[Rfam]
RNA sequence: GGGAGAUGAUGAUACUCUUAUUUGGUCCGUGUUUCUGAAUUUUCUGUGAUUGAGAAACACAAGCACUCUCUGAUCCC
Numbered sequence: 001g002g003g004a005g006a007u008g009a010u011g012a013u014a015c016u017c018u019u020a021u022u023u024g025g026u027c028c029g030u031g032u033u034u035c036u037g038a039a040u041u042u043u044c045u046g047u048g049a050u051u052g053a054g055a056a057a058c059a060c061a062a063g064c065a066c067u068c069u070c071u072g073a074u075c076c077c
Stems, first nucleotide, its partner, number of pairs: 001077004
Background:
Small nucleolar RNA SNORD18: a 77-nucleotide RNA from Coffea canephora. Pairs were carried over by alignment from the consensus structure, which was predicted with PFOLD. For this family Rfam cites "Two different snoRNAs are encoded in introns of amphibian and human L1 ribosomal protein genes" (Prislei et al., Nucleic Acids Res, 1993). The organism belongs to Coffea, within Eukaryota.